[Rfam]
RNA sequence: GGGGCCGAUUAGGAUUCGACGCCGGUAAUGAAACUUGAGGGGCAUGCCGAGUAGGUGACAGUUCUCGUAAAUUCGCUGCCACAAUUCAUAGUUGCCAACGACGACAACUACGCUCUGGCCGCCUAAGGGCGCCAGCAGACCCUAGGGGAUGCCUGUAAACCCGAAGAUUAGGUCUGUCAGAUAGAACAGGAUCGCCGCCAAGCUCGCUGCAGGUGUAACGGCUAAAACUUAUGCAGCUCGCUCCAAGCACCCUGCCACUCGGGCGGCGCGGAGUUAACUCAAUAGAGAUGGCUAAGCAUGUAGAACCGAUAGCGGAGUCCUGGCGGACGGGGGUUCAAAUCCCCCCGGCUCCACCA
Numbered sequence: 001g002g003g004g005c006c007g008a009u010u011a012g013g014a015u016u017c018g019a020c021g022c023c024g025g026u027a028a029u030g031a032a033a034c035u036u037g038a039g040g041g042g043c044a045u046g047c048c049g050a051g052u053a054g055g056u057g058a059c060a061g062u063u064c065u066c067g068u069a070a071a072u073u074c075g076c077u078g079c080c081a082c083a084a085u086u087c088a089u090a091g092u093u094g095c096c097a098a099c100g101a102c103g104a105c106a107a108c109u110a111c112g113c114u115c116u117g118g119c120c121g122c123c124u125a126a127g128g129g130c131g132c133c134a135g136c137a138g139a140c141c142c143u144a145g146g147g148g149a150u151g152c153c154u155g156u157a158a159a160c161c162c163g164a165a166g167a168u169u170a171g172g173u174c175u176g177u178c179a180g181a182u183a184g185a186a187c188a189g190g191a192u193c194g195c196c197g198c199c200a201a202g203c204u205c206g207c208u209g210c211a212g213g214u215g216u217a218a219c220g221g222c223u224a225a226a227a228c229u230u231a232u233g234c235a236g237c238u239c240g241c242u243c244c245a246a247g248c249a250c251c252c253u254g255c256c257a258c259u260c261g262g263g264c265g266g267c268g269c270g271g272a273g274u275u276a277a278c279u280c281a282a283u284a285g286a287g288a289u290g291g292c293u294a295a296g297c298a299u300g301u302a303g304a305a306c307c308g309a310u311a312g313c314g315g316a317g318u319c320c321u322g323g324c325g326g327a328c329g330g331g332g333g334u335u336c337a338a339a340u341c342c343c344c345c346c347g348g349c350u351c352c353a354c355c356a
Stems, first nucleotide, its partner, number of pairs: 001352007020325006027318001029316001035312003040307002043300005048067004055082003059078002115135004120131003136176006142166002145162003152190005194222004200216001206237005240274005247267002250263003254292004258287003329345005
A member of the RNA family "transfer-messenger RNA" from Pseudomonas flexibilis, 356 nucleotides long. From the family's description: Bacterial tmRNA, also known as 10Sa RNA or SsrA, is named for its dual tRNA and mRNA-like properties. Its role is to liberate the mRNA from a stalled ribosome. To accomplish this part of the tmRNA is used as a reading frame that ends in a translation stop signal. It is annotated as a non-coding RNA gene. It scores 198 bits against the family's covariance model.